[Rfam]
RNA sequence: AAGACUAUACUUUCAGGGAUCAUUUCUAUAGUUUCUGACUUGAGAAAUGUGUUUCUAAAGUGAUUGGUCUCGCUACCCACGAUGAUGAGAGGUGAUAUUCCCUUCUGAGCGUGAAGCGGACACAGAGUAAUGAUUCAGUUCAUAUGCUCUCUGUCAUUGAUGAUCGUUCUUUGCUUCUUCGGGAGUAUUGAUGAAGGGGAUAUGAUCAGAGUGGU
Numbered sequence: 001a002a003g004a005c006u007a008u009a010c011u012u013u014c015a016g017g018g019a020u021c022a023u024u025u026c027u028a029u030a031g032u033u034u035c036u037g038a039c040u041u042g043a044g045a046a047a048u049g050u051g052u053u054u055c056u057a058a059a060g061u062g063a064u065u066g067g068u069c070u071c072g073c074u075a076c077c078c079a080c081g082a083u084g085a086u087g088a089g090a091g092g093u094g095a096u097a098u099u100c101c102c103u104u105c106u107g108a109g110c111g112u113g114a115a116g117c118g119g120a121c122a123c124a125g126a127g128u129a130a131u132g133a134u135u136c137a138g139u140u141c142a143u144a145u146g147c148u149c150u151c152u153g154u155c156a157u158u159g160a161u162g163a164u165c166g167u168u169c170u171u172u173g174c175u176u177c178u179u180c181g182g183g184a185g186u187a188u189u190g191a192u193g194a195a196g197g198g199g200a201u202a203u204g205a206u207c208a209g210a211g212u213g214g215u
Stems, first nucleotide, its partner, number of pairs: 001041003005037001007034001009032003015027004051064001054063002077214004095203011109167003119155004125149004130143004172187006

Rfam assigns this 215-nucleotide RNA from Gymnodraco acuticeps to the family "Small nucleolar RNA U3". Rfam describes the family as follows. Small nucleolar RNAs (snoRNAs) are involved in the processing and modification of rRNA in the nucleolus. There are two main classes of snoRNAs: the box C/D class, and the box H/ACA class. U3 snoRNA is a member of the box C/D class. Indeed, the box C/D element is a subset of the six short sequence elements found in all U3 snoRNAs, namely boxes A, A', B, C, C', and D. The U3 snoRNA secondary structure is characterised by a small 5' domain (with boxes A and A'), and a larger 3' domain (with boxes B, C, C', and D), the two domains being linked by a single-stranded hinge. Boxes B and C form the B/C motif, which appears to be exclusive to U3 snoRNAs, and boxes C' and D form the C'/D motif. The latter is functionally similar to the C/D motifs found in other snoRNAs. The 5' domain and the hinge region act as a pre-rRNA-binding domain. The 3' domain has conserved protein-binding sites. Both the box B/C and box C'/D motifs are sufficient for nuclear retention of U3 snoRNA. The box C'/D motif is also necessary for nucleolar localisation, stability and hyper-methylation of U3 snoRNA. Both box B/C and C'/D motifs are involved in specific protein interactions and are necessary for the rRNA processing functions of U3 snoRNA. For this family Rfam cites "The uRNA database" (Zwieb, Nucleic Acids Res, 1997). Gene Ontology terms of the family: nucleolus and RNA processing.